A member of the RNA family "Lysine riboswitch aptamer" from Rossellomorea marisflavi, 179 nucleotides long.
RNA sequence: AGUGGUGAUAGAGGUGCGGACUUCAAUAGUACGGUUCACGGAAGAGUAUGAGCUCUGGAGAUGUGACCGGAAAGGGGAGGACCGCCGAAGUGAAGCCGCACUCAUAUCGGCUGCGCUGGUUCUGCAUUUAAUAGAUGCAGGAUUGUCAAGAUGAUUCAUCUUGGAGAGCUAUCUCACAA
Numbered sequence: 001a002g003u004g005g006u007g008a009u010a011g012a013g014g015u016g017c018g019g020a021c022u023u024c025a026a027u028a029g030u031a032c033g034g035u036u037c038a039c040g041g042a043a044g045a046g047u048a049u050g051a052g053c054u055c056u057g058g059a060g061a062u063g064u065g066a067c068c069g070g071a072a073a074g075g076g077g078a079g080g081a082c083c084g085c086c087g088a089a090g091u092g093a094a095g096c097c098g099c100a101c102u103c104a105u106a107u108c109g110g111c112u113g114c115g116c117u118g119g120u121u122c123u124g125c126a127u128u129u130a131a132u133a134g135a136u137g138c139a140g141g142a143u144u145g146u147c148a149a150g151a152u153g154a155u156u157c158a159u160c161u162u163g164g165a166g167a168g169c170u171a172u173c174u175c176a177c178a179a
Base pairs, nucleotide, nucleotide: 007173008172009171010170011169016085017084018083019082021080022078023077024076032069033068034067036066037065038064039063040062089117090116091115092114094112095111096110097109098108118144119143120142121141122140123139124138125137126136127135128134146164147163148162149161150160151159152158